[Rfam]
RNA sequence: CGGCUGUAGCCAUAUAAAAGAUUAGAGCUUAACUGGCCGGUUGUCAUUGCUAAGUUGACAUAUCUGCUUACCGAGCUUCUUACAUUU
Number, nucleotide and partner (000 for none) at each position: 001c000002g000003g000004c000005u000006g000007u000008a000009g000010c000011c000012a000013u000014a000015u000016a000017a000018a000019a000020g000021a000022u000023u000024a080025g079026a078027g077028c000029u075030u074031a000032a000033c000034u000035g068036g067037c066038c000039g064040g063041u062042u000043g059044u058045c057046a056047u000048u000049g000050c000051u000052a000053a000054g000055u000056u046057g045058a044059c043060a000061u000062a041063u040064c039065u000066g037067c036068u035069u000070a000071c000072c000073g000074a030075g029076c000077u027078u026079c025080u024081u000082a000083c000084a000085u000086u000087u000
Small nucleolar RNA snoR109: an 87-nucleotide sequence from Turnera subulata. The base pairs follow the family's consensus structure, which was predicted with WAR. The family's RNA type in Rfam is H/ACA-box small nucleolar RNA.